[Rfam]
RNA sequence: UCUCCUCACGGGCAAACCCGGCGAAAGCCGGGGACGCAAAGCCACGGGUCUAAAGUUCCCUUCCGGGAAUAUGACGGCCGGGUUGCAAGG
Numbered sequence: 001u002c003u004c005c006u007c008a009c010g011g012g013c014a015a016a017c018c019c020g021g022c023g024a025a026a027g028c029c030g031g032g033g034a035c036g037c038a039a040a041g042c043c044a045c046g047g048g049u050c051u052a053a054a055g056u057u058c059c060c061u062u063c064c065g066g067g068a069a070u071a072u073g074a075c076g077g078c079c080g081g082g083u084u085g086c087a088a089g090g
Base pairs, nucleotide, nucleotide: 012037013036017032018031019030020029021028022027040084041083042082043081045080046079047078048075049074050073056068057067058066
Shown here is a 90-nucleotide RNA sequence from Desulfofundulus thermobenzoicus, a member of the family "c-di-GMP-I riboswitch aptamer". NCBI's taxonomy places the organism under Bacteria, Bacillota, Eubacteriales, Peptococcaceae, Desulfofundulus. The family's consensus secondary structure is taken from published work. It scores 75 bits against the family's covariance model.